This 108-nucleotide RNA from Malus domestica belongs to the Rfam family "Small nucleolar RNA snoR97".
[Rfam]
RNA sequence: UUCAACUAUACCCUUAUGGGUCUGAAAUAACUCAUAAAUUAGAGUGUUGUCAUCAGCUUCAUCUUGUGUUACUGGUCUAGACUGGAGUUAAACAACAACACUACAUCU
Numbered sequence: 001u002u003c004a005a006c007u008a009u010a011c012c013c014u015u016a017u018g019g020g021u022c023u024g025a026a027a028u029a030a031c032u033c034a035u036a037a038a039u040u041a042g043a044g045u046g047u048u049g050u051c052a053u054c055a056g057c058u059u060c061a062u063c064u065u066g067u068g069u070u071a072c073u074g075g076u077c078u079a080g081a082c083u084g085g086a087g088u089u090a091a092a093c094a095a096c097a098a099c100a101c102u103a104c105a106u107c108u
Stems, first nucleotide, its partner, number of pairs: 043102007055089006062081003
The base pairs follow the family's consensus structure, which was predicted with WAR.
Lineage of the source: Eukaryota > Viridiplantae > Pentapetalae > Rosales > Malus.
A reference for the family is Marker et al. (2002), "Experimental RNomics: identification of 140 candidates for small non-messenger RNAs in the plant Arabidopsis thaliana", Curr Biol.
It scores 71 bits against the family's covariance model.